[Rfam]
RNA sequence: UUUACAUGAUGAUUAUUUAUCACGACGGUCGACAUAUCCACACGUUGGUAAUUGAUGAAAAUGCCUAUGACUAGGCUUUGAUCUGAA
Number, nucleotide and partner (000 for none) at each position: 001u087002u086003u085004a084005c000006a000007u000008g000009a000010u000011g000012a000013u000014u000015a000016u000017u000018u000019a000020u000021c000022a000023c000024g000025a000026c000027g000028g000029u000030c000031g000032a000033c000034a000035u000036a000037u000038c000039c000040a000041c000042a000043c000044g000045u000046u000047g000048g000049u000050a000051a000052u000053u000054g000055a000056u000057g000058a000059a000060a000061a000062u000063g000064c000065c000066u000067a000068u000069g000070a000071c000072u000073a000074g000075g000076c000077u000078u000079u000080g000081a000082u000083c000084u004085g003086a002087a001
Record summary
The family of this 87-nucleotide sequence from Sclerotinia trifoliorum is "Small nucleolar RNA SNORD35". NCBI's taxonomy places the organism under Eukaryota, Opisthokonta, saccharomyceta, Leotiomycetes, Sclerotinia. Clan: SNORD35 clan.